This 428-nucleotide RNA from Plasmodiophora brassicae belongs to the Rfam family "Group I catalytic intron". A reference for the family is Cech (1990), "Self-splicing of group I introns", Annu Rev Biochem. Group I catalytic introns are large self-splicing ribozymes. The family's consensus secondary structure is taken from published work.
Nucleotides: 428
Base pairs, nucleotide, nucleotide: 005025006024007023009021010020011019012018013017172363173362174361175360176359178357179356183298184297185296186295187294188293193289194288195287299343300342304338305337306336307335313330315328347407349406350405351404352403353402365393366392367391368390369389370388371387372386412426413425414424415423416422
Number, partner (000 for none) and nucleotide at each position: 001000g002000a003000a004000a005025u006024u007023u008000c009021a010020c011019a012018c013017u014000a015000g016000a017013g018012g019011u020010g021009u022000c023007a024006g025005a026000a027000a028000a029000g030000u031000u032000a033000c034000c035000a036000c037000a038000g039000g040000g041000g042000u043000g044000g045000c046000g047000g048000u049000g050000g051000u052000g053000g054000u055000a056000u057000a058000u059000c060000c061000c062000c063000g064000c065000c066000c067000g068000c069000c070000c071000c072000u073000g074000u075000g076000a077000a078000a079000u080000c081000u082000c083000a084000g085000u086000g087000g088000u089000a090000g091000c092000u093000u094000u095000u096000a097000a098000g099000a100000g101000c102000a103000g104000g105000c106000u107000c108000a109000a110000a111000g112000u113000g114000u115000c116000c117000u118000g119000c120000u121000a122000g123000u124000c125000g126000g127000c128000c129000a130000u131000g132000g133000u134000c135000c136000g137000c138000c139000u140000g141000c142000u143000g144000u145000c146000c147000a148000c149000c150000a151000a152000u153000g154000g155000a156000c157000c158000a159000u160000g161000g162000g163000c164000a165000c166000c167000g168000g169000c170000g171000a172363c173362a174361u175360u176359g177000u178357c179356a180000a181000a182000u183298u184297g185296c186295g187294g188293g189000g190000a191000c192000a193289u194288c195287c196000u197000a198000a199000a200000g201000c202000c203000g204000a205000c206000u207000c208000c209000a210000c211000c212000a213000a214000g215000u216000c217000g218000u219000c220000g221000u222000g223000g224000a225000a226000a227000c228000a229000c230000g231000g232000a233000c234000g235000a236000u237000g238000g239000c240000c241000g242000a243000g244000c245000u246000a247000a248000u249000c250000g251000c252000c253000c254000u255000g256000g257000g258000u259000a260000u261000g262000g263000u264000a265000a266000a267000a268000g269000c270000g271000a272000g273000u274000c275000c276000g277000g278000a279000u280000a281000c282000u283000g284000a285000a286000u287195g288194g289193g290000u291000a292000a293188u294187c295186c296185g297184c298183a299343g300342c301000c302000a303000a304338g305337u306336c307335c308000u309000a310000c311000g312000g313330u314000c315328g316000g317000g318000u319000c320000g321000c322000c323000c324000a325000c326000g327000c328315c329000c330313g331000a332000u333000a334000c335307g336306g337305a338304u339000g340000c341000a342300g343299u344000c345000c346000a347407a348000c349406g350405a351404c352403u353402a354000g355000a356179u357178g358000g359176c360175a361174a362173u363172g364000g365393g366392u367391c368390g369389g370388g371387c372386a373000u374000c375000a376000u377000a378000c379000u380000a381000u382000a383000c384000g385000u386372u387371g388370c389369c390368c391367g392366g393365c394000u395000u396000a397000a398000g399000a400000u401000a402353u403352a404351g405350u406349c407347u408000g409000g410000c411000c412426c413425a414424c415423g416422g417000g418000a419000a420000a421000g422416c423415c424414g425413u426412g427000c428000c